RNA: Small nucleolar RNA SNORA48
RNA sequence: ACCCCCUGGAAAUGGGCAAGGAGACACCUGAUUGGUGAUGUUGCUCUUAUAUCAGAUAGGGGCAAAGCAGAUGUACAGUCCUUAGUUCAUCUUAGCUUGAUGCCUGUGUUGGUGGCCAGAACUGUUUCAUGCCUGAGGCACAUAA
Dot-bracket structure: ..((((((....(((...(((.((((.(........).))))...)))...)))..))))))......................(((...........(.(...((...((.(.......).))...)).).)...)))......